Notes:
Shown here is a 162-nucleotide sequence from Oscillibacter sp. CAG:155, a member of the family "M-box riboswitch aptamer (ykoK leader)". A search with the family's covariance model found it, with a score of 91 bits. Pairs were carried over by alignment from the consensus structure.
[Rfam]
RNA sequence: CAUAUCGUCCGGUAGGUAAGGCUACCACAGGGAUAUGGAUCACUGCCGCGGAGUGAUGGAGACAUCAUGAGAGGGUUUGAACAGGUGAUAUCGAACACGAAGGUAUCAUCUAAUGUGAUUUCACCGCCUUGUGAAGCUAAAGCUUGAACGGUAAACGGGACC
Numbered sequence: 001c002a003u004a005u006c007g008u009c010c011g012g013u014a015g016g017u018a019a020g021g022c023u024a025c026c027a028c029a030g031g032g033a034u035a036u037g038g039a040u041c042a043c044u045g046c047c048g049c050g051g052a053g054u055g056a057u058g059g060a061g062a063c064a065u066c067a068u069g070a071g072a073g074g075g076u077u078u079g080a081a082c083a084g085g086u087g088a089u090a091u092c093g094a095a096c097a098c099g100a101a102g103g104u105a106u107c108a109u110c111u112a113a114u115g116u117g118a119u120u121u122c123a124c125c126g127c128c129u130u131g132u133g134a135a136g137c138u139a140a141a142g143c144u145u146g147a148a149c150g151g152u153a154a155a156c157g158g159g160a161c162c
Base pairs, nucleotide, nucleotide: 005158006157007156008155011149013101015144016143017142020138021137022136026133027132028131029130030129031128032127039119040118041117042116043115045077046074047073049071055066056065057064058063084110085109086108087107090104091103092102

On this family, see Dann CE 3rd et al., Cell 2007: "Structure and mechanism of a metal-sensing regulatory RNA".